[Rfam]
RNA sequence: UUUGUAUGGGUCUGUGGUUGCAAGUCGAGGCCAGUCGCAGGCGAAACGAUCCACGUAAGCGGGCAAAGCCCCGUGAGCAUGGUGCGGCUUAGAAGUAAGACCAACCGGGAGACCGAGAGAGGCAGUAGUGGGGAGCCAUGUGGGCUUAGGAGCGAACCCUCCUGUUGGCGAGUGUGGGGGCAAAGACCAGGUCAGCCAUACAAA
Number, nucleotide and partner (000 for none) at each position: 001u204002u203003u202004g201005u200006a199007u198008g197009g196010g000011u000012c195013u194014g193015u189016g188017g187018u186019u185020g000021c000022a000023a000024g000025u000026c000027g000028a175029g000030g173031c041032c000033a089034g088035u087036c086037g085038c084039a083040g000041g031042c000043g000044a000045a000046a000047c000048g000049a000050u082051c081052c000053a000054c000055g000056u000057a000058a074059g000060c000061g071062g070063g000064c000065a000066a000067a000068g000069c000070c062071c061072c000073g000074u058075g000076a000077g000078c000079a000080u182081g051082g050083u039084g038085c037086g036087g035088c034089u033090u000091a000092g000093a000094a000095g000096u000097a000098a000099g000100a000101c168102c167103a166104a165105c164106c115107g114108g113109g000110a000111g000112a000113c108114c107115g106116a000117g000118a000119g161120a160121g159122g158123c000124a000125g000126u000127a000128g153129u152130g000131g000132g000133g000134a146135g145136c144137c000138a000139u000140g000141u000142g000143g000144g136145c135146u134147u000148a000149g000150g000151a000152g129153c128154g000155a000156a000157c000158c122159c121160u120161c119162c000163u000164g105165u104166u103167g102168g101169c000170g000171a000172g000173u030174g000175u028176g000177g000178g000179g000180g000181c000182a080183a000184a000185g019186a018187c017188c016189a015190g000191g000192u000193c014194a013195g012196c009197c008198a007199u006200a005201c004202a003203a002204a001
Shown here is a 204-nucleotide RNA, a member of the family "raiA RNA".